RNA: Pseudoknot of the regulatory region of the repBA gene
RNA sequence: AAGCCCCCGAAUCUCUAUUCACAAUCUUGGCGGAUGGGUUUAGAGAGAAUCAGGGGCUCAAAUACUGGCUGCUGCCAGCAAGGAUUAUAACGCAUGUACAAUCCAAAUCAAGCCUUCCGACCCGCCAU
Numbered sequence: 001a002a003g004c005c006c007c008c009g010a011a012u013c014u015c016u017a018u019u020c021a022c023a024a025u026c027u028u029g030g031c032g033g034a035u036g037g038g039u040u041u042a043g044a045g046a047g048a049a050u051c052a053g054g055g056g057c058u059c060a061a062a063u064a065c066u067g068g069c070u071g072c073u074g075c076c077a078g079c080a081a082g083g084a085u086u087a088u089a090a091c092g093c094a095u096g097u098a099c100a101a102u103c104c105a106a107a108u109c110a111a112g113c114c115u116u117c118c119g120a121c122c123c124g125c126c127a128u
Stems, first nucleotide, its partner, number of pairs: 002058006009051002013047004019038002022036002027124001029122002031119003